Burkholderia sRNA 35: a 167-nucleotide sequence from Burkholderia sp. lig30.
By type it is a small RNA.
A reference for the family is Sass et al. (2017), "Identification of small RNAs abundant in Burkholderia cenocepacia biofilms reveal putative regulators with a potential role in carbon and iron metabolism", Sci Rep.
Lineage of the source: Bacteria > Betaproteobacteria > Burkholderiales > Burkholderiaceae > Burkholderia.
Identified by RNA-seq, RACE and Northern blot. Strongly expressed in biofilm.
RNA sequence: CAUGCGCGUGCUGCGGCGCGCGCACCGAUGACGCUUCCGACGCACGAUACGUCCAUGGCACGCAGGAGGCGGAUCCGGCAACCUCACCCCCCACGAGGCCCGGAACCCUGAGCGGACAUCCAGGCGGGUGCUUCACCGGCCCCGCAUGGAUGUCCGCUGAUUUUUUU
Numbered sequence: 001c002a003u004g005c006g007c008g009u010g011c012u013g014c015g016g017c018g019c020g021c022g023c024a025c026c027g028a029u030g031a032c033g034c035u036u037c038c039g040a041c042g043c044a045c046g047a048u049a050c051g052u053c054c055a056u057g058g059c060a061c062g063c064a065g066g067a068g069g070c071g072g073a074u075c076c077g078g079c080a081a082c083c084u085c086a087c088c089c090c091c092c093a094c095g096a097g098g099c100c101c102g103g104a105a106c107c108c109u110g111a112g113c114g115g116a117c118a119u120c121c122a123g124g125c126g127g128g129u130g131c132u133u134c135a136c137c138g139g140c141c142c143c144g145c146a147u148g149g150a151u152g153u154c155c156g157c158u159g160a161u162u163u164u165u166u167u
Stems, first nucleotide, its partner, number of pairs: 004023005010017002032071007041062002045057001047056002074104005082098004109160001111158012124145002126141002129138002